[Rfam]
RNA sequence: GGCGGCGUAGCUCAGCUGGCUAGAGCAUUCGGUUCAUACCCGGGGGGUCGGGGGUUCAAAUCCCUCCGCCGCUA
Numbered sequence: 001g002g003c004g005g006c007g008u009a010g011c012u013c014a015g016c017u018g019g020c021u022a023g024a025g026c027a028u029u030c031g032g033u034u035c036a037u038a039c040c041c042g043g044g045g046g047g048u049c050g051g052g053g054g055u056u057c058a059a060a061u062c063c064c065u066c067c068g069c070c071g072c073u074a
Base pairs, nucleotide, nucleotide: 001073002072003071004070005069006068007067010026011025012024013023028044029043030042031041032040050066051065052064053063054062
Rfam assigns this 74-nucleotide sequence from Tumebacillus algifaecis to the family "tRNA". Its family is annotated with triplet codon-amino acid adaptor activity in the Gene Ontology. Lineage of the source: Bacteria > Bacillati > Bacilli > Alicyclobacillaceae > Tumebacillus. The base pairs follow the family's consensus structure, which is taken from published work. It is annotated as a transfer RNA.